[Rfam]
RNA sequence: GGCUUCGCUCUUGCAAAGACCUCGGCAGGGGUGGCCAACGGCGGUCACCCAACCGACAAAGGACGUCAG
Numbered sequence: 001g002g003c004u005u006c007g008c009u010c011u012u013g014c015a016a017a018g019a020c021c022u023c024g025g026c027a028g029g030g031g032u033g034g035c036c037a038a039c040g041g042c043g044g045u046c047a048c049c050c051a052a053c054c055g056a057c058a059a060a061g062g063a064c065g066u067c068a069g
Base pairs, nucleotide, nucleotide: 030049031048032047033046034045035044036043

The family of this 69-nucleotide RNA sequence is "narK RNA". It is one of the family's seed sequences. Rfam classes the family as a cis-regulatory element.